A member of the RNA family "Eukaryotic small subunit ribosomal RNA" from Drosophila mojavensis, 169 nucleotides of a longer RNA.
RNA sequence: CCGCCCGUCGCUACUACCGAUUGAAUUAUUUAGUGAGGUCUCCGGACGUGAUCACUGUGACGCUUCGUGUGUUGCGGUUGUUUCGCAAAAGUUGACCGAACUUGAUUAUUUAGAGGAAGUAAAAGUCGUAACAAAGGUUUCCGUAGGUGAACCUGCGGAAGGAUCAUUA
Numbered sequence: 001c002c003g004c005c006c007g008u009c010g011c012u013a014c015u016a017c018c019g020a021u022u023g024a025a026u027u028a029u030u031u032a033g034u035g036a037g038g039u040c041u042c043c044g045g046a047c048g049u050g051a052u053c054a055c056u057g058u059g060a061c062g063c064u065u066c067g068u069g070u071g072u073u074g075c076g077g078u079u080g081u082u083u084c085g086c087a088a089a090a091g092u093u094g095a096c097c098g099a100a101c102u103u104g105a106u107u108a109u110u111u112a113g114a115g116g117a118a119g120u121a122a123a124a125g126u127c128g129u130a131a132c133a134a135a136g137g138u139u140u141c142c143g144u145a146g147g148u149g150a151a152c153c154u155g156c157g158g159a160a161g162g163a164u165c166a167u168u169a
Stems, first nucleotide, its partner, number of pairs: 001136001003132001006128002009125001012121004017116002021112001023111004028106003032102003037097004043091001048086004054078005060072004138161010
The source organism's lineage runs through Eukaryota, Metazoa, Dicondylia, Aparaglossata and mojavensis species complex. Rfam links the family to the GO terms structural constituent of ribosome and ribosome. The family is grouped with related families in Rfam's "SSU clan". The family's consensus secondary structure is taken from published work.